RNA sequence: AUUGUUGUGGUUGAUGAUGUGCUCUCUUUCCCCGACUUAUCGACAGUGGUGAAACAGAUGUUCAUGUAAAGCCAAUUAUGUUCUGAAACCACAAU
Number, nucleotide and partner (000 for none) at each position: 001a095002u094003u093004g092005u091006u000007g089008u088009g000010g000011u000012u000013g000014a000015u000016g000017a000018u000019g000020u000021g000022c000023u000024c000025u000026c000027u000028u000029u000030c000031c000032c000033c000034g000035a000036c000037u000038u000039a000040u000041c000042g000043a000044c000045a000046g000047u000048g000049g000050u000051g000052a000053a000054a000055c000056a000057g000058a000059u000060g000061u000062u000063c000064a000065u000066g000067u000068a000069a000070a000071g000072c000073c000074a000075a000076u000077u000078a000079u000080g000081u000082u000083c000084u000085g000086a000087a000088a008089c007090c000091a005092c004093a003094a002095u001